[Rfam]
RNA sequence: UGGGUGGGACCCGCGCAGUCCGCCCGGAGGAUUCAACCUGGUGAGUUGCGGUCGGCUGGCGUGGGUUCGGUGUAUCCUCGCCUCCGUCUCCCCUCCAUCCCUCUGUCGGGCAGGCCGGGGGGGCAAGCCAGCGCGGGGACCACUGCCUGGCGGGCAGCUGGCCCUGGCCGGGCGCAUUUCCUCCACGGCAGUGCGCCGCGACCGGCUCUGGGUCGGCUGGGAAAGCCUCCAGCAGGAAGGUGGCCCAGCGCCGCGCAAGGGCCAGCAGGUGUUACAGCCCCCGGGCAGCAGGUCUUGCCAAAUCCCGGGGCCGAGGGAAAGGACCGCCGCCGCGCUCACCUCCCCCCUCGUUGGCGGUGUCGUGGCAGGGGGCAUCGCUCCUCUGGGGGCGGUGUCCUCGCAGCGUGGCAUUUCGCGCAGGGGUGUGGGGGUGUGGAGGCCGGGCCUGCCAGCCCCCGGCGCCACUGUCAACCGGGGCGGAUUGUCCUCAGUGUGCCCUGACCAUACAGCGCUGCUGGGUCGGGUUCAUGGGCCGCGCUCAGGCGCCUGGGGUCCGCGGCGAUGUUGGCUACCCACCCGACAUGUCUUGAAACCCGG
Numbered sequence: 001u002g003g004g005u006g007g008g009a010c011c012c013g014c015g016c017a018g019u020c021c022g023c024c025c026g027g028a029g030g031a032u033u034c035a036a037c038c039u040g041g042u043g044a045g046u047u048g049c050g051g052u053c054g055g056c057u058g059g060c061g062u063g064g065g066u067u068c069g070g071u072g073u074a075u076c077c078u079c080g081c082c083u084c085c086g087u088c089u090c091c092c093c094u095c096c097a098u099c100c101c102u103c104u105g106u107c108g109g110g111c112a113g114g115c116c117g118g119g120g121g122g123g124c125a126a127g128c129c130a131g132c133g134c135g136g137g138g139a140c141c142a143c144u145g146c147c148u149g150g151c152g153g154g155c156a157g158c159u160g161g162c163c164c165u166g167g168c169c170g171g172g173c174g175c176a177u178u179u180c181c182u183c184c185a186c187g188g189c190a191g192u193g194c195g196c197c198g199c200g201a202c203c204g205g206c207u208c209u210g211g212g213u214c215g216g217c218u219g220g221g222a223a224a225g226c227c228u229c230c231a232g233c234a235g236g237a238a239g240g241u242g243g244c245c246c247a248g249c250g251c252c253g254c255g256c257a258a259g260g261g262c263c264a265g266c267a268g269g270u271g272u273u274a275c276a277g278c279c280c281c282c283g284g285g286c287a288g289c290a291g292g293u294c295u296u297g298c299c300a301a302a303u304c305c306c307g308g309g310g311c312c313g314a315g316g317g318a319a320a321g322g323a324c325c326g327c328c329g330c331c332g333c334g335c336u337c338a339c340c341u342c343c344c345c346c347c348u349c350g351u352u353g354g355c356g357g358u359g360u361c362g363u364g365g366c367a368g369g370g371g372g373c374a375u376c377g378c379u380c381c382u383c384u385g386g387g388g389g390c391g392g393u394g395u396c397c398u399c400g401c402a403g404c405g406u407g408g409c410a411u412u413u414c415g416c417g418c419a420g421g422g423g424u425g426u427g428g429g430g431g432u433g434u435g436g437a438g439g440c441c442g443g444g445c446c447u448g449c450c451a452g453c454c455c456c457c458g459g460c461g462c463c464a465c466u467g468u469c470a471a472c473c474g475g476g477g478c479g480g481a482u483u484g485u486c487c488u489c490a491g492u493g494u495g496c497c498c499u500g501a502c503c504a505u506a507c508a509g510c511g512c513u514g515c516u517g518g519g520u521c522g523g524g525u526u527c528a529u530g531g532g533c534c535g536c537g538c539u540c541a542g543g544c545g546c547c548u549g550g551g552g553u554c555c556g557c558g559g560c561g562a563u564g565u566u567g568g569c570u571a572c573c574c575a576c577c578c579g580a581c582a583u584g585u586c587u588u589g590a591a592a593c594c595c596g597g
Base pairs, nucleotide, nucleotide: 001579002578003577004576005575006574007573008572009570011568012567583596584595
RNA: Eukaryotic large subunit ribosomal RNA, nucleotides 436 to 1032